This 75-nucleotide RNA from Haemonchus placei belongs to the Rfam family "mir-5928 microRNA precursor family". Taxonomically the source falls in Haemonchus (Eukaryota, Eumetazoa, Nematoda, Rhabditida). The match comes from Rfam's covariance-model search (61 bits). Gene Ontology terms of the family: miRNA-mediated post-transcriptional gene silencing and RISC complex.
RNA sequence: GGCACAAAUUCGAAGUAAGAUAGUUUAGUAGGGUCAGCUGAUCCUACUAAUGGACCUUUCUUGGAACCUGUGCCC
Numbered sequence: 001g002g003c004a005c006a007a008a009u010u011c012g013a014a015g016u017a018a019g020a021u022a023g024u025u026u027a028g029u030a031g032g033g034u035c036a037g038c039u040g041a042u043c044c045u046a047c048u049a050a051u052g053g054a055c056c057u058u059u060c061u062u063g064g065a066a067c068c069u070g071u072g073c074c075c
Stems, first nucleotide, its partner, number of pairs: 001074006009066001011064001013062003017058003021054001025050006032043004